[Rfam]
About this RNA:
The record is an 82-nucleotide sequence from Acanthochromis polyacanthus, which matches "Small nucleolar RNA SNORD79" in Rfam. snoRNA U79 or Z22 is found in intron 7 of the gas5 gene in humans and is also present in mice. It scores 74 bits against the family's covariance model. A reference for the family is Galardi et al. (2002), "Purified box C/D snoRNPs are able to reproduce site-specific 2'-O-methylation of target RNA in vitro", Mol Cell Biol. Clan: SNORD74 clan. Its family is annotated with nucleolus and RNA processing in the Gene Ontology.

RNA sequence: AACUGUCAGUGAUGAUUUUGUUUUAAAAACAAUGGGAAUCUCUCUGAAAAAGAGUGAAAGAGUACUUUUUUCUGAUGCAGUG
Numbered sequence: 001a002a003c004u005g006u007c008a009g010u011g012a013u014g015a016u017u018u019u020g021u022u023u024u025a026a027a028a029a030c031a032a033u034g035g036g037a038a039u040c041u042c043u044c045u046g047a048a049a050a051a052g053a054g055u056g057a058a059a060g061a062g063u064a065c066u067u068u069u070u071u072c073u074g075a076u077g078c079a080g081u082g
Stems, first nucleotide, its partner, number of pairs: 002081005